[Rfam]
RNA sequence: GCACCACUGGGCGAAGCGAAUGGGCCACGGUUCUAUAAAAGGAACCAGGCUCAGGAAAGUCCCCGGGCCCCCACUAACUGCAGAGAUGCAGGCCUGGAAACAGGUAACCUCCGAGAACUUGGAGCCUUAAUCGCCUUGUGCGAUGGGCUGAGACACGUGUGGAGCCUCGGGCUUCAAGUCUGGAGCAUAUUUGGCCGUAUGUACAGUUAUUCGCUUGGUCCUUCAGACUAACUGAACGGGGCUUACGAUCCAGUGGUG
Numbered sequence: 001g002c003a004c005c006a007c008u009g010g011g012c013g014a015a016g017c018g019a020a021u022g023g024g025c026c027a028c029g030g031u032u033c034u035a036u037a038a039a040a041g042g043a044a045c046c047a048g049g050c051u052c053a054g055g056a057a058a059g060u061c062c063c064c065g066g067g068c069c070c071c072c073a074c075u076a077a078c079u080g081c082a083g084a085g086a087u088g089c090a091g092g093c094c095u096g097g098a099a100a101c102a103g104g105u106a107a108c109c110u111c112c113g114a115g116a117a118c119u120u121g122g123a124g125c126c127u128u129a130a131u132c133g134c135c136u137u138g139u140g141c142g143a144u145g146g147g148c149u150g151a152g153a154c155a156c157g158u159g160u161g162g163a164g165c166c167u168c169g170g171g172c173u174u175c176a177a178g179u180c181u182g183g184a185g186c187a188u189a190u191u192u193g194g195c196c197g198u199a200u201g202u203a204c205a206g207u208u209a210u211u212c213g214c215u216u217g218g219u220c221c222u223u224c225a226g227a228c229u230a231a232c233u234g235a236a237c238g239g240g241g242c243u244u245a246c247g248a249u250c251c252a253g254u255g256g257u258g
Stems, first nucleotide, its partner, number of pairs: 002258010014216006021053006029046006057244003061241004079090004092105005108183002117179006133172004145167004155160001218228003